[Rfam]
About this RNA: A member of the RNA family "Small nucleolar RNA SNORA32" from Phyllostomus discolor, 121 nucleotides long. The organism belongs to Phyllostomus, within Eukaryota. Rfam's curators write: ACA32 is a member of the H/ACA class of snoRNA that guide the sites of modification of uridines to pseudouridines. Rfam classes the family as an H/ACA-box small nucleolar RNA. A search with the family's covariance model found it, with a score of 126 bits. Rfam links the family to the GO terms nucleolus and RNA processing.
Nucleotides: 121
Stems, first nucleotide, its partner, number of pairs: 003053005010046003026041004067114004074107004085100003
Number, partner (000 for none) and nucleotide at each position: 001000u002000g003053g004052u005051c006050a007049u008000u009000a010046c011045c012044a013000a014000a015000g016000c017000u018000u019000u020000u021000a022000g023000a024000g025000u026041g027040c028039a029038g030000u031000u032000g033000c034000u035000c036000a037000u038029u039028u040027g041026c042000c043000g044012u045011g046010g047000a048000u049007a050006u051005g052004a053003c054000c055000a056000c057000a058000a059000a060000a061000c062000a063000u064000u065000u066000u067114c068113c069112c070111a071000c072000u073000a074107g075106g076105u077104u078000u079000u080000u081000u082000c083000c084000c085100u086099g087098c088000u089000a090000u091000a092000u093000u094000g095000c096000u097000a098087g099086c100085a101000u102000u103000u104077g105076g106075c107074c108000u109000a110000u111070u112069g113068g114067g115000a116000a117000c118000a119000u120000u121000u